[Rfam]
RNA sequence: GACAGUUUGUGAUGGUCUGGUCUGAAAGCCCAGUCAGGGUGAGACCAGGCCUGAUGUUGUUGUU
Numbered sequence: 001g002a003c004a005g006u007u008u009g010u011g012a013u014g015g016u017c018u019g020g021u022c023u024g025a026a027a028g029c030c031c032a033g034u035c036a037g038g039g040u041g042a043g044a045c046c047a048g049g050c051c052u053g054a055u056g057u058u059g060u061u062g063u064u
Base pairs, nucleotide, nucleotide: 001064002063003062004061005060014051015050016049017048018047019046020045021044022043023042029039030038031037
The family of this 64-nucleotide sequence from Carassius auratus is "Selenocysteine insertion sequence 1". The match comes from Rfam's covariance-model search (37 bits). From the family's description: The incorporation of selenocysteine into a protein sequence is directed by an in-frame UGA codon (usually a stop codon) within the coding region of the mRNA. Selenoprotein mRNAs contain a conserved secondary structure in the 3' UTR that is required for the distinction of UGA stop from UGA selenocysteine.